A member of the RNA family "mir-17 microRNA precursor family" from Triplophysa tibetana, 80 nucleotides long.
From the family's description: This family represents the microRNA (miRNA) precursor mir-17, family, which includes mir-20, mir-91, and mir-103. miRNAs are transcribed as ~70nt precursors (modelled here) and subsequently processed by the Dicer enzyme to give a ~22nt product. In this case the mature sequence comes from the 3' arm of the precursor. The extents of the hairpin precursors are not generally known and are estimated based on hairpin prediction.
The match comes from Rfam's covariance-model search (65 bits).
Rfam links the family to the GO terms miRNA-mediated post-transcriptional gene silencing and RISC complex.
The family has 234 seed sequences and 4,687 matches in Rfam 15.1.
[Rfam]
RNA sequence: CUGCGUGUGGUAAAGUGCUUACAGUGCAGAUAGUGUGUGUGUGUGUCCUACUGCAAUGUGGGCACUUCACUCACACACAG
Numbered sequence: 001c002u003g004c005g006u007g008u009g010g011u012a013a014a015g016u017g018c019u020u021a022c023a024g025u026g027c028a029g030a031u032a033g034u035g036u037g038u039g040u041g042u043g044u045g046u047c048c049u050a051c052u053g054c055a056a057u058g059u060g061g062g063c064a065c066u067u068c069a070c071u072c073a074c075a076c077a078c079a080g
Stems, first nucleotide, its partner, number of pairs: 005076003009072002013067011025055003029052001031050003